Rfam assigns this 211-nucleotide RNA sequence to the family "IS605-orfB-I RNA". The family's consensus secondary structure is taken from published work.
[Rfam]
RNA sequence: CCUAUACAGAUGUAUCAACGCAAGACAGUUGAGCAUCUCCCUGUAGGAACAUGUUUUAAUAGAAGCAUUGACAACAAGUCUUAUUGAGUAGCUUGUGAGUUGAAAUAAGAUGAGUCAAUGUGGAAUAGGUUAGCCGUAAGACCUUUAGUUGAGAAACUAUAAAAUUGACCUAGAAACGAUUUAUGAAUCUUCGUUUUCUAGUUACGUCAAG
Number, nucleotide and partner (000 for none) at each position: 001c047002c046003u045004a044005u043006a042007c000008a038009g037010a036011u035012g034013u033014a000015u032016c031017a030018a029019c028020g026021c000022a000023a000024g000025a000026c020027a000028g019029u018030u017031g016032a015033g013034c012035a011036u010037c009038u008039c000040c000041c000042u006043g005044u004045a003046g002047g001048a000049a000050c000051a000052u000053g000054u000055u000056u000057u000058a000059a000060u000061a000062g000063a000064a000065g121066c120067a119068u118069u117070g116071a115072c114073a000074a000075c000076a000077a000078g000079u110080c109081u108082u107083a106084u105085u104086g000087a000088g000089u000090a101091g100092c000093u098094u000095g000096u000097g000098a093099g000100u091101u090102g000103a000104a085105a084106u083107a082108a081109g080110a079111u000112g000113a000114g072115u071116c070117a069118a068119u067120g066121u065122g000123g000124a000125a000126u000127a144128g143129g142130u141131u140132a000133g208134c000135c206136g205137u204138a203139a165140g131141a130142c129143c128144u127145u000146u159147a158148g157149u156150u155151g000152a000153g000154a000155a150156a149157c148158u147159a146160u000161a000162a000163a000164a000165u139166u000167g000168a000169c000170c201171u200172a199173g198174a197175a196176a195177c193178g192179a191180u000181u000182u000183a000184u000185g000186a000187a000188u000189c000190u000191u179192c178193g177194u000195u176196u175197u174198c173199u172200a171201g170202u000203u138204a137205c136206g135207u000208c133209a000210a000211g000